[Rfam]
RNA: Small nucleolar RNA SNORA43
RNA sequence: AGAGCCCAGCCCAGCUGGCACCCGGGACGCGGCUGCCCUGCUGCCCCUGUGAUGCUGGGCGCAGAGAAAGCAGCUGUUUCUGCACUCAGUGCUCAGAACAGCGGGCACUAAGAAUGGCUUGAGUUGGGCAUCG
Numbered sequence: 001a002g003a004g005c006c007c008a009g010c011c012c013a014g015c016u017g018g019c020a021c022c023c024g025g026g027a028c029g030c031g032g033c034u035g036c037c038c039u040g041c042u043g044c045c046c047c048u049g050u051g052a053u054g055c056u057g058g059g060c061g062c063a064g065a066g067a068a069a070g071c072a073g074c075u076g077u078u079u080c081u082g083c084a085c086u087c088a089g090u091g092c093u094c095a096g097a098a099c100a101g102c103g104g105g106c107a108c109u110a111a112g113a114a115u116g117g118c119u120u121g122a123g124u125u126g127g128g129c130a131u132c133g
Stems, first nucleotide, its partner, number of pairs: 004060007024047003072125003080117003085112002090107005